[Rfam]
RNA sequence: GUCGUUAUUCCAUUCACUACGGAUCGUCCGGCACGUACCUGCCGGUGAAGGAGAAGCAC
Numbered sequence: 001g002u003c004g005u006u007a008u009u010c011c012a013u014u015c016a017c018u019a020c021g022g023a024u025c026g027u028c029c030g031g032c033a034c035g036u037a038c039c040u041g042c043c044g045g046u047g048a049a050g051g052a053g054a055a056g057c058a059c
Base pairs, nucleotide, nucleotide: 010051011050013049014048015047016046028045029044030043031042032041033040
RNA: msiK RNA